[Rfam]
RNA sequence: CGGGCAUGAUGAUGAACAUAGCAAUUAUUUUCUGAUAAUUCUUGAUUGAAUAAUAACCUCCUACUCAUUCUGA
Numbered sequence: 001c002g003g004g005c006a007u008g009a010u011g012a013u014g015a016a017c018a019u020a021g022c023a024a025u026u027a028u029u030u031u032c033u034g035a036u037a038a039u040u041c042u043u044g045a046u047u048g049a050a051u052a053a054u055a056a057c058c059u060c061c062u063a064c065u066c067a068u069u070c071u072g073a
Stems, first nucleotide, its partner, number of pairs: 006068004028049002
Dot-bracket structure: .....((((..................((..................))...............)))).....
A member of the RNA family "Small nucleolar RNA Z105" from Vitis rotundifolia, 73 nucleotides long. Gene Ontology terms of the family: RNA processing and nucleolus. The match comes from Rfam's covariance-model search (71 bits). By type it is a C/D-box small nucleolar RNA. A reference for the family is Chen et al. (2003), "The high diversity of snoRNAs in plants: identification and comparative study of 120 snoRNA genes from Oryza sativa", Nucleic Acids Res.